[Rfam]
Nucleotides: 123
Base pairs, nucleotide, nucleotide: 001038002037003036004035005034006033007032008031009030010029025052026051027050028049043074044073045072046071060107061106062105063104079103080102081101082100083099091119092118094117095116096115097114
Number, partner (000 for none) and nucleotide at each position: 001038g002037u003036u004035u005034a006033u007032a008031u009030c010029g011000g012000a013000c014000g015000g016000c017000u018000a019000a020000a021000a022000a023000c024000a025052u026051c027050a028049g029010c030009g031008a032007u033006a034005u035004a036003g037002a038001u039000a040000c041000a042000a043074g044073c045072g046071c047000a048000a049028c050027u051026g052025g053000g054000g055000g056000a057000u058000a059000g060107u061106a062105g063104a064000u065000g066000u067000a068000a069000c070000a071046g072045c073044g074043c075000a076000c077000a078000a079103a080102u081101c082100g083099g084000u085000g086000g087000c088000g089000a090000a091119g092118c093000u094117u095116a096115g097114a098000u099083c100082c101081g102080a103079u104063u105062c106061u107060a108000c109000g110000a111000a112000a113000g114097u115096c116095u117094g118092g119091c120000g121000a122000g123000u

Shown here is a 123-nucleotide RNA, a member of the family "Betaproteobacteria-1 RNA".
Rfam's curators put it in the seed alignment.